[Rfam]
This 122-nucleotide sequence from Cohnella sp. AR92 belongs to the Rfam family "SAM riboswitch aptamer (S box leader)".

RNA sequence: UCCUUAUCAAGAGCAGGCGGAGGGACUAGCCCGAUGAAGCCCGGCAACCGGCGUCGAUCACAGACGCACGGUGCUAAUUCUUGCGGUUCGCGAUGAACGUUCGCGACACUGGGAGAUGAGAG
Numbered sequence: 001u002c003c004u005u006a007u008c009a010a011g012a013g014c015a016g017g018c019g020g021a022g023g024g025a026c027u028a029g030c031c032c033g034a035u036g037a038a039g040c041c042c043g044g045c046a047a048c049c050g051g052c053g054u055c056g057a058u059c060a061c062a063g064a065c066g067c068a069c070g071g072u073g074c075u076a077a078u079u080c081u082u083g084c085g086g087u088u089c090g091c092g093a094u095g096a097a098c099g100u101u102c103g104c105g106a107c108a109c110u111g112g113g114a115g116a117u118g119a120g121a122g
Base pairs, nucleotide, nucleotide: 001122003120004119005118006117007116008115013042016041017040018039022032023031024030026083028081029080043075044074045073046072048071049070051067052066053065054064079114084111085110086109087108
Taxonomically the source falls in Cohnella (Bacteria, Bacillati, Bacilli, Caryophanales). The match comes from Rfam's covariance-model search (67 bits). The family's consensus secondary structure is taken from published work.